[Rfam]
RNA: MIR7533 microRNA precursor family
RNA sequence: UUUGGAUCCUCUCCAUCGAGCUUCUCUCCAUCCUCUCUCCAUCCAAAUCUGAGCCAUUGAUUUGGAAACUUAAAGGCUUGGAUACAUUUAAGAAGAGAGAGAAAAAAUGAAUUGUAUUUAAAGGCUUGAAUUAAUUUAAGAAGAGAGAGAAAACAUGAACUAAUCCUCACCUUUAAAAUUCAAAAUCAAUGGCUCAGAUUUUGGAUGGAGAGGGGAUGGAGAGAAGCUGGAUGGAGAGGAUCCAAA
Numbered sequence: 001u002u003u004g005g006a007u008c009c010u011c012u013c014c015a016u017c018g019a020g021c022u023u024c025u026c027u028c029c030a031u032c033c034u035c036u037c038u039c040c041a042u043c044c045a046a047a048u049c050u051g052a053g054c055c056a057u058u059g060a061u062u063u064g065g066a067a068a069c070u071u072a073a074a075g076g077c078u079u080g081g082a083u084a085c086a087u088u089u090a091a092g093a094a095g096a097g098a099g100a101g102a103a104a105a106a107a108u109g110a111a112u113u114g115u116a117u118u119u120a121a122a123g124g125c126u127u128g129a130a131u132u133a134a135u136u137u138a139a140g141a142a143g144a145g146a147g148a149g150a151a152a153a154c155a156u157g158a159a160c161u162a163a164u165c166c167u168c169a170c171c172u173u174u175a176a177a178a179u180u181c182a183a184a185a186u187c188a189a190u191g192g193c194u195c196a197g198a199u200u201u202u203g204g205a206u207g208g209a210g211a212g213g214g215g216a217u218g219g220a221g222a223g224a225a226g227c228u229g230g231a232u233g234g235a236g237a238g239g240a241u242c243c244a245a246a
Stems, first nucleotide, its partner, number of pairs: 002245016019228029048198015065181003070176007080166004087159004108138007116131002120127002